A member of the RNA family "DUF3800-XI RNA" from Firmicutes bacterium CAG:791, 47 nucleotides long.
By type it is a small RNA.
Taxonomically the source falls in Bacillota (Bacteria, Bacillati).
About the family: Actinobacteria, Firmicutes, Proteobacteria, Spirochaetes (1 example).
Rfam's curators put it in the seed alignment.

RNA sequence: UGGGCUGGUCGCAAGACCCGGGUCCAUCAUGGGCGGGGAAGUUCCCC
Numbered sequence: 001u002g003g004g005c006u007g008g009u010c011g012c013a014a015g016a017c018c019c020g021g022g023u024c025c026a027u028c029a030u031g032g033g034c035g036g037g038g039a040a041g042u043u044c045c046c047c
Stems, first nucleotide, its partner, number of pairs: 001026006007018004